Rfam assigns this 71-nucleotide sequence to the family "int-alpA RNA". It is one of the family's seed sequences.
RNA sequence: ACAGCGCCUAGGCUGAUCACUGAACAGCGGGAAACCUUCAACCCGCUUGGCGCUGAUUUUCUUUGGAGGGU
Numbered sequence: 001a002c003a004g005c006g007c008c009u010a011g012g013c014u015g016a017u018c019a020c021u022g023a024a025c026a027g028c029g030g031g032a033a034a035c036c037u038u039c040a041a042c043c044c045g046c047u048u049g050g051c052g053c054u055g056a057u058u059u060u061c062u063u064u065g066g067a068g069g070g071u
Base pairs, nucleotide, nucleotide: 002055003054004053005052006051007050008049011021012020027046028045029044030043031042034071035070036069037068038067039066